RNA sequence: AAAGUCUCCUACGCCACCGCUAUGGAUUGGUUUAUUGCCGUCUGCUUCGCCUUU
Numbered sequence: 001a002a003a004g005u006c007u008c009c010u011a012c013g014c015c016a017c018c019g020c021u022a023u024g025g026a027u028u029g030g031u032u033u034a035u036u037g038c039c040g041u042c043u044g045c046u047u048c049g050c051c052u053u054u
Base pairs, nucleotide, nucleotide: 001054002053003052008049011046013045014044016041017040019038020037022035023034024033025032026031
RNA: Editing element of GABA-3 exon 9